[Rfam]
RNA sequence: GGGGGCCAACCCCUCCCGGGCUGUUGGGGGGGGAGAUGGAGGAGGGGUUAAUGGGGGCCCCCCCAAUAUG
Numbered sequence: 001g002g003g004g005g006c007c008a009a010c011c012c013c014u015c016c017c018g019g020g021c022u023g024u025u026g027g028g029g030g031g032g033g034a035g036a037u038g039g040a041g042g043a044g045g046g047g048u049u050a051a052u053g054g055g056g057g058c059c060c061c062c063c064c065a066a067u068a069u070g
Stems, first nucleotide, its partner, number of pairs: 001064005006039002010033008046059004
The family of this 70-nucleotide RNA sequence is "Flavivirus DB element". The family's consensus secondary structure is taken from published work. It scores 42 bits against the family's covariance model. A reference for the family is Chiu et al. (2005), "Control of translation by the 5'- and 3'-terminal regions of the dengue virus genome", J Virol. By type it is a cis-regulatory element. Rfam describes the family as follows. This family represents the flavivirus 3' UTR elements DB1 and DB2.